[Rfam]
Makes More Granules Regulator RNA (mmgR): a 73-nucleotide RNA from Microvirga tunisiensis. Taxonomically the source falls in Microvirga (Bacteria, Pseudomonadota, Alphaproteobacteria, Methylobacteriaceae). SuhB later renamed mmgR (makes more granules regulator) was a putative non-coding RNA found multiple times in the Agrobacterium tumefaciens genome and related alpha-proteobacteria. Other non-coding RNAs uncovered in the same analysis include: speF, ybhL, metA, and serC.Several studies inSinorhizobium meliloti showed that suhB element is indeed a non-coding RNA:firstly it was detected on Northern blot and called Sm8RNA, secondly in an RNAseq study referred to as SmelC689.The mutant phenotype's (strain lacking the small RNA) cytoplasm contains higher content of polyhydroxybutyrate (PBH)storage granules than wild type strain. The sRNA is required to limit the PBH intracellular accumulation when the nitrogen-fixing Sinorhizobium meliloti is under condition of surplus carbon in relation to nitrogen. It has been renamed to mmgR. Further study confirmed that mmgR fine-tunes the regulation of PBH storage.Northern blot confirmed the expression of the sRNA in other rhizobia species. On this family, see Corbino et al., Genome Biol 2005: "Evidence for a second class of S-adenosylmethionine riboswitches and other regulatory RNA motifs in alpha-proteobacteria". A search with the family's covariance model found it, with a score of 64 bits. The family is grouped with related families in Rfam's "suhB sRNA clan". Rfam classes the family as a small RNA. Pairs were carried over by alignment from the consensus structure.
RNA sequence: GCUGCUCGCCCUUCUUGGGCGUUUCCUCCCUAAACUUCGGGCCGCAUUGUUGCGGCCCUUUUUCGUGUGCCGA
Numbered sequence: 001g002c003u004g005c006u007c008g009c010c011c012u013u014c015u016u017g018g019g020c021g022u023u024u025c026c027u028c029c030c031u032a033a034a035c036u037u038c039g040g041g042c043c044g045c046a047u048u049g050u051u052g053c054g055g056c057c058c059u060u061u062u063u064c065g066u067g068u069g070c071c072g073a
Stems, first nucleotide, its partner, number of pairs: 008020004039058008